This 48-nucleotide RNA from Pseudosulfitobacter pseudonitzschiae belongs to the Rfam family "SAM/SAH riboswitch aptamer". The organism belongs to Pseudosulfitobacter, within Bacteria. For this family Rfam cites "The structure of the SAM/SAH-binding riboswitch" (Weickhmann et al., Nucleic Acids Res, 2019).
RNA sequence: GACGUGUCACAACGGCUUCCUGGCGUGACACAUGAUUUCAAUGGAGCA
Number, nucleotide and partner (000 for none) at each position: 001g000002a000003c000004g031005u030006g029007u028008c027009a026010c025011a000012a000013c022014g021015g047016c046017u045018u000019c044020c043021u014022g013023g000024c000025g010026u009027g008028a007029c006030a005031c004032a000033u000034g000035a000036u000037u000038u000039c000040a000041a000042u000043g020044g019045a017046g016047c015048a000